A member of the RNA family "Bacterial small signal recognition particle RNA" from Olsenella profusa, 96 nucleotides long. It is annotated as a non-coding RNA gene. For this family Rfam cites "SRPDB: Signal Recognition Particle Database" (Rosenblad et al., Nucleic Acids Res, 2003). From the family's description: The signal recognition particle (SRP) is a universally conserved ribonucleoprotein involved in the co-translational targeting of proteins to membranes. Pairs were carried over by alignment from the consensus structure, which is taken from published work.

[Rfam]
RNA sequence: UCGAUGGGUGCGGGCGACGCUACACCUCGAACCUGGUCAGGGUCGGAAGGCAGCAGCCAUAAGGGGCCUCUGGCGGGCGCCCGUUCCCAUCGAGUG
Numbered sequence: 001u002c003g004a005u006g007g008g009u010g011c012g013g014g015c016g017a018c019g020c021u022a023c024a025c026c027u028c029g030a031a032c033c034u035g036g037u038c039a040g041g042g043u044c045g046g047a048a049g050g051c052a053g054c055a056g057c058c059a060u061a062a063g064g065g066g067c068c069u070c071u072g073g074c075g076g077g078c079g080c081c082c083g084u085u086c087c088c089a090u091c092g093a094g095u096g
Stems, first nucleotide, its partner, number of pairs: 004090005010084005015077001018075005025066004034059004042051003